[Rfam]
RNA sequence: GGAGGCGGUCGCGACUGGCGAGGGUGGGCAACCACCGGGGAGCGGCCACGGAUCAUGAACAGGUCAUGAAUGAGGGACGUCGCCCGCCUGGGCGUCCCCG
Numbered sequence: 001g002g003a004g005g006c007g008g009u010c011g012c013g014a015c016u017g018g019c020g021a022g023g024g025u026g027g028g029c030a031a032c033c034a035c036c037g038g039g040g041a042g043c044g045g046c047c048a049c050g051g052a053u054c055a056u057g058a059a060c061a062g063g064u065c066a067u068g069a070a071u072g073a074g075g076g077a078c079g080u081c082g083c084c085c086g087c088c089u090g091g092g093c094g095u096c097c098c099c100g
Stems, first nucleotide, its partner, number of pairs: 005049001007047006015039002017088004024035004077095005

The family of this 100-nucleotide RNA sequence from Actinomyces sp. oral taxon 448 is "ZMP/ZTP riboswitch aptamer (pfl RNA motif)". The family's consensus secondary structure is taken from published work. Lineage of the source: Bacteria > Actinomycetes > Actinomycetaceae > Actinomyces > Actinomyces sp. oral taxon 448.